RNA sequence: UUGACAGCUCUGGAGACUGAACCCUUCUGUUUAUCCACAGAACAGGUACAGCACAGGCAGCAGCACUGCGAGCUUCCCCACAGUGUCUCGUCCAUGUGUCCCAAGCCUGUUCUGGAGGAGCCCCCUGUUGAGGUGAGAAGGCAGUUCAGUCUCUUCAUGUCCUGUCAAUCUUUGGCCUCA
Numbered sequence: 001u002u003g004a005c006a007g008c009u010c011u012g013g014a015g016a017c018u019g020a021a022c023c024c025u026u027c028u029g030u031u032u033a034u035c036c037a038c039a040g041a042a043c044a045g046g047u048a049c050a051g052c053a054c055a056g057g058c059a060g061c062a063g064c065a066c067u068g069c070g071a072g073c074u075u076c077c078c079c080a081c082a083g084u085g086u087c088u089c090g091u092c093c094a095u096g097u098g099u100c101c102c103a104a105g106c107c108u109g110u111u112c113u114g115g116a117g118g119a120g121c122c123c124c125c126u127g128u129u130g131a132g133g134u135g136a137g138a139a140g141g142c143a144g145u146u147c148a149g150u151c152u153c154u155u156c157a158u159g160u161c162c163u164g165u166c167a168a169u170c171u172u173u174g175g176c177c178u179c180a
Stems, first nucleotide, its partner, number of pairs: 002167003007161001011157002013153009024141003028138001030137006038109003051099005063086004112130001114128001116126003
Rfam assigns this 180-nucleotide RNA sequence from Acrocephalus arundinaceus to the family "TUC338".
For this family Rfam cites "Expression and functional role of a transcribed noncoding RNA with an ultraconserved element in hepatocellular carcinoma" (Braconi et al., Proc Natl Acad Sci U S A, 2011).
The base pairs follow the family's consensus structure, which was predicted with WAR.
NCBI's taxonomy places the organism under Eukaryota, Bilateria, Deuterostomia, Gnathostomata, Acrocephalus.